[Rfam]
RNA sequence: UGUGCAAAUGAUGAUAAAACAGACAGGGACAUCAGUAAUCCAUUGUAUAAUUCAUUGGAGGAUGUUGACUAUGUCUAAAUGGGAAUCUCUCUGAUGCACU
Numbered sequence: 001u002g003u004g005c006a007a008a009u010g011a012u013g014a015u016a017a018a019a020c021a022g023a024c025a026g027g028g029a030c031a032u033c034a035g036u037a038a039u040c041c042a043u044u045g046u047a048u049a050a051u052u053c054a055u056u057g058g059a060g061g062a063u064g065u066u067g068a069c070u071a072u073g074u075c076u077a078a079a080u081g082g083g084a085a086u087c088u089c090u091c092u093g094a095u096g097c098a099c100u
Stems, first nucleotide, its partner, number of pairs: 002099005

Small nucleolar RNA R44/J54/Z268 family: a 100-nucleotide sequence from Turnera subulata. The family has 29 seed sequences and 1,168 matches in Rfam 15.1. The source organism's lineage runs through Eukaryota, Streptophyta, Streptophytina, Gunneridae and Turnera. The family's consensus secondary structure was predicted with PFOLD.